[Rfam]
RNA: SAM (S-adenosyl methionine) riboswitch aptamer
RNA sequence: CUUCACGAGAUGCCGUCGCCAAGCUCCGACUCGACGGCACGCCAACCCCACGCUCGCGGGUGGCUCGGAUGACGAAGCGGCUCGCGGCCGACCGGCCCGGGCACGAGCGCCCC
Numbered sequence: 001c002u003u004c005a006c007g008a009g010a011u012g013c014c015g016u017c018g019c020c021a022a023g024c025u026c027c028g029a030c031u032c033g034a035c036g037g038c039a040c041g042c043c044a045a046c047c048c049c050a051c052g053c054u055c056g057c058g059g060g061u062g063g064c065u066c067g068g069a070u071g072a073c074g075a076a077g078c079g080g081c082u083c084g085c086g087g088c089c090g091a092c093c094g095g096c097c098c099g100g101g102c103a104c105g106a107g108c109g110c111c112c113c
Stems, first nucleotide, its partner, number of pairs: 001077004009040001012038006022031002041064003046060003080102005086097004